[Rfam]
RNA: Bacterial RNase P class B
RNA sequence: AUGAAAUACUGAUGGCAGUUAUAUUUAUAUGACUGAGGAAAGUCCGUACUCGCACUUGCUGGAACGCAAGUAGUUUUAGUGCGCGGUCUAAUAAACCUCGGCAGGAAUUAUUUUUUCCUGACGGCUGGCAAAAUACCUAAAUACCUCUUUUUUCUCCUUGGUAUAUGGUACUAGCCUAUAAAAGUUCUAUAGUGACGAUUACUAGGGAAACCUAGGAAGUGAGACGACGUAAACCCCUCUAGCGAGCAAUCCAAAUCUUUAAUUGGUAGGAGCAUCAAAGAAAGAGAAAAAUAAUCUCAAUUGGUAAUUCUCACAAAGAAUUAAGAUAGAUCAUCGGUUAAAACAGAAUACGGCUUAUUUUU
Numbered sequence: 001a002u003g004a005a006a007u008a009c010u011g012a013u014g015g016c017a018g019u020u021a022u023a024u025u026u027a028u029a030u031g032a033c034u035g036a037g038g039a040a041a042g043u044c045c046g047u048a049c050u051c052g053c054a055c056u057u058g059c060u061g062g063a064a065c066g067c068a069a070g071u072a073g074u075u076u077u078a079g080u081g082c083g084c085g086g087u088c089u090a091a092u093a094a095a096c097c098u099c100g101g102c103a104g105g106a107a108u109u110a111u112u113u114u115u116u117c118c119u120g121a122c123g124g125c126u127g128g129c130a131a132a133a134u135a136c137c138u139a140a141a142u143a144c145c146u147c148u149u150u151u152u153u154c155u156c157c158u159u160g161g162u163a164u165a166u167g168g169u170a171c172u173a174g175c176c177u178a179u180a181a182a183a184g185u186u187c188u189a190u191a192g193u194g195a196c197g198a199u200u201a202c203u204a205g206g207g208a209a210a211c212c213u214a215g216g217a218a219g220u221g222a223g224a225c226g227a228c229g230u231a232a233a234c235c236c237c238u239c240u241a242g243c244g245a246g247c248a249a250u251c252c253a254a255a256u257c258u259u260u261a262a263u264u265g266g267u268a269g270g271a272g273c274a275u276c277a278a279a280g281a282a283a284g285a286g287a288a289a290a291a292u293a294a295u296c297u298c299a300a301u302u303g304g305u306a307a308u309u310c311u312c313a314c315a316a317a318g319a320a321u322u323a324a325g326a327u328a329g330a331u332c333a334u335c336g337g338u339u340a341a342a343a344c345a346g347a348a349u350a351c352g353g354c355u356u357a358u359u360u361u362u
Base pairs, nucleotide, nucleotide: 004362005361006360008338009337010336011335012334013333014332016035017034018033019032020031021030040356041355042354044353045352046351047350048349049246050245051244052243053242054071055070056069057068058067059066077241078240079239081237082100083099085097086096087095101122102120103119104118105117106116107115123236124235127176128175129174134170135169136168137167141164142163143162144161145160184234185233187229199218200217202215203214204213205212206211250271251270252269275304276303277302278301305323306322307321308320309319310318